[Rfam]
RNA sequence: UUAAUUCUUCGGGGUCGGGUGAAAUUCCCAAUCGACGGUGAUAAGGACUACAAUCCUUAUAAGCCCGUGACCUGUGCUACAUUUAGGGUGGCAUGGCUGAUCUGGUGUAACUCCAGAGCCGACAGUUAAAGUCUGGAUGGGAGAAGAAUUGU
Numbered sequence: 001u002u003a004a005u006u007c008u009u010c011g012g013g014g015u016c017g018g019g020u021g022a023a024a025u026u027c028c029c030a031a032u033c034g035a036c037g038g039u040g041a042u043a044a045g046g047a048c049u050a051c052a053a054u055c056c057u058u059a060u061a062a063g064c065c066c067g068u069g070a071c072c073u074g075u076g077c078u079a080c081a082u083u084u085a086g087g088g089u090g091g092c093a094u095g096g097c098u099g100a101u102c103u104g105g106u107g108u109a110a111c112u113c114c115a116g117a118g119c120c121g122a123c124a125g126u127u128a129a130a131g132u133c134u135g136g137a138u139g140g141g142a143g144a145a146g147a148a149u150u151g152u
Stems, first nucleotide, its partner, number of pairs: 003150008017029003031132002033121002035068004063119002072096004101117005123135003
Shown here is a 152-nucleotide sequence from Pseudogracilibacillus auburnensis, a member of the family "FMN riboswitch aptamer (RFN element)".
Lineage of the source: Bacteria > Bacillati > Bacillota > Bacillaceae > Pseudogracilibacillus.
Rfam links the family to the GO term FMN binding.